[Rfam]
RNA sequence: AAGUUUGAUAGAGGUUGCGUGUUUCAAGAGUAAGUCAUCCGAUGUAUUCAGGUACAGGCGAAGGUGGCCAAAAGGGGAAAACGCCGAAAGCUGGAUUGCACCUGAAGCUUGCAGCUUGGGCAUGGAGCUAAGAACUCUAUGACUGUCAUCGAAUGACGAUGGGGCGCUAUCUGAAAG
Numbered sequence: 001a002a003g004u005u006u007g008a009u010a011g012a013g014g015u016u017g018c019g020u021g022u023u024u025c026a027a028g029a030g031u032a033a034g035u036c037a038u039c040c041g042a043u044g045u046a047u048u049c050a051g052g053u054a055c056a057g058g059c060g061a062a063g064g065u066g067g068c069c070a071a072a073a074g075g076g077g078a079a080a081a082c083g084c085c086g087a088a089a090g091c092u093g094g095a096u097u098g099c100a101c102c103u104g105a106a107g108c109u110u111g112c113a114g115c116u117u118g119g120g121c122a123u124g125g126a127g128c129u130a131a132g133a134a135c136u137c138u139a140u141g142a143c144u145g146u147c148a149u150c151g152a153a154u155g156a157c158g159a160u161g162g163g164g165c166g167c168u169a170u171c172u173g174a175a176a177g
Stems, first nucleotide, its partner, number of pairs: 007171005017084004022079004034068006088117006095110001098108002118144002121141007146162006
Rfam assigns this 177-nucleotide RNA sequence from Firmicutes bacterium CAG:56 to the family "Lysine riboswitch aptamer". A search with the family's covariance model found it, with a score of 96 bits. The family's consensus secondary structure is taken from published work. Gene Ontology term of the family: lysine biosynthetic process.